RNA: Lysine riboswitch aptamer
RNA sequence: AGUCACAGAAGAGGUCGCUGAACUCAUCAGUAACUGGGCAGAGGUGUUGCGGCACCAAUGAAACCCAGCGAAAGGGUGUUUGGCCGAAAUGCUUAGUCACCGCUGAAACUAAGCGUUGGGACUGAAUUUAAGAGAUUCAGGACUGUCGCAGCAUGCUUGCUGCGGAGCGCUAUGGACGAU
Number, nucleotide and partner (000 for none) at each position: 001a000002g000003u000004c000005a000006c175007a000008g173009a000010a171011g170012a000013g000014g000015u000016c000017g084018c083019u082020g081021a080022a079023c078024u000025c076026a000027u000028c000029a000030g000031u000032a000033a000034c068035u067036g066037g065038g064039c000040a000041g000042a000043g000044g000045u000046g000047u000048u000049g000050c000051g000052g000053c000054a000055c000056c000057a000058a000059u000060g000061a000062a000063a000064c038065c037066c036067a035068g034069c000070g000071a000072a000073a000074g000075g000076g025077u000078g023079u022080u021081u020082g019083g018084c017085c000086g000087a000088a117089a116090u115091g114092c113093u112094u111095a110096g109097u108098c000099a000100c000101c000102g000103c000104u000105g000106a000107a000108a097109c096110u095111a094112a093113g092114c091115g090116u089117u088118g144119g143120g000121a000122c140123u139124g138125a137126a136127u135128u134129u000130a000131a000132g000133a000134g128135a127136u126137u125138c124139a123140g122141g000142a000143c119144u118145g000146u165147c164148g163149c162150a161151g160152c159153a000154u000155g000156c000157u000158u000159g152160c151161u150162g149163c148164g147165g146166a000167g000168c000169g000170c011171u010172a000173u008174g000175g006176a000177c000178g000179a000180u000